[Rfam]
RNA sequence: AUUAUUUGAUCUUUGGUGAUUUUAGCUGUAUGGUGUAUAUCAAAGAUCCAUAGAGCUUUAUCACCAAAACCCAAAUGGU
Numbered sequence: 001a002u003u004a005u006u007u008g009a010u011c012u013u014u015g016g017u018g019a020u021u022u023u024a025g026c027u028g029u030a031u032g033g034u035g036u037a038u039a040u041c042a043a044a045g046a047u048c049c050a051u052a053g054a055g056c057u058u059u060a061u062c063a064c065c066a067a068a069a070c071c072c073a074a075a076u077g078g079u
Base pairs, nucleotide, nucleotide: 001079002078003077004076005075007073008072012068013067014066015065016064017063018062019061020060024057025056026055027054029052030051031050032049033048
Dot-bracket structure: (((((.((...(((((((((...((((.(((((..............))))).))))..)))))))))...)).)))))

A member of the RNA family "mir-9/mir-79 microRNA precursor family" from Drosophila persimilis, 79 nucleotides long. Pairs were carried over by alignment from the consensus structure, which was predicted with RNAalifold. Gene Ontology terms of the family: miRNA-mediated post-transcriptional gene silencing and RISC complex.